RNA: c-di-AMP riboswitch aptamer (ydaO/yuaA leader)
RNA sequence: AUUUCUAAAUCGCUGAAGCAAACUAGACGCGGGGGACCCAUUUUAGACGGAGUGCAUAAGCAAUCCUUGGGGUGAAUCUCUUCUUUUGAAGGGUAGGGCUACUCAGGCCCGAAUCCGACAGCUAACCUCGUAAGCGUUAAGAGCAGAUAA
Dot-bracket structure: ..........((((...(.........)((((((....((...........................))(((.....((((........))))..((((.......))))...))).........)))))).))))..............